A member of the RNA family "Small nucleolar RNA SNORA26" from Callorhinchus milii, 120 nucleotides long. The source organism's lineage runs through Eukaryota, Deuterostomia, Chordata, Craniata and Callorhinchus. Rfam classes the family as an H/ACA-box small nucleolar RNA. The snoRNA HBI-6 belong to the H/ACA family of snoRNAs, guiding the pseudouridylation of position U4522 if the 28S rRNA. HBI-6 is the human orthologue of mouse MBI-6 snoRNA. Its family is annotated with nucleolus and RNA processing in the Gene Ontology. For this family Rfam cites "RNomics: an experimental approach that identifies 201 candidates for novel, small, non-messenger RNAs in mouse" (Huttenhofer et al., EMBO J, 2001).
RNA sequence: UUGCCCAUCUAAGAUGAACCAUGUCUUAAGUGGCCAACACAAAAGGGUAGAGCAGAUUCUCUCUAAAACCCAAAGCAAAAGAUCAUGUCUAUGCUUUGGAUCCUGUCGAGAGGAACAAUG
Numbered sequence: 001u002u003g004c005c006c007a008u009c010u011a012a013g014a015u016g017a018a019c020c021a022u023g024u025c026u027u028a029a030g031u032g033g034c035c036a037a038c039a040c041a042a043a044a045g046g047g048u049a050g051a052g053c054a055g056a057u058u059c060u061c062u063c064u065a066a067a068a069c070c071c072a073a074a075g076c077a078a079a080a081g082a083u084c085a086u087g088u089c090u091a092u093g094c095u096u097u098g099g100a101u102c103c104u105g106u107c108g109a110g111a112g113g114a115a116c117a118a119u120g
Stems, first nucleotide, its partner, number of pairs: 002049005008043001010041001013038001015036002020030001057114001059112005070099007080090003
Dot-bracket structure: .(((((.(.(..(.((...(.........)....)).)..).).))))).......(.(((((......(((((((...(((.....)))..)))))))........))))).)......